[Rfam]
RNA sequence: AAAUGAAAUAAAUGUAAAUCACUCUGGAUAAGAGUGUCUGCCAAAUGCUGUAAA
Numbered sequence: 001a002a003a004u005g006a007a008a009u010a011a012a013u014g015u016a017a018a019u020c021a022c023u024c025u026g027g028a029u030a031a032g033a034g035u036g037u038c039u040g041c042c043a044a045a046u047g048c049u050g051u052a053a054a
Stems, first nucleotide, its partner, number of pairs: 013043001014041003020036006
RNA: UnaL2 LINE 3' element
Organism: Bagarius yarrelli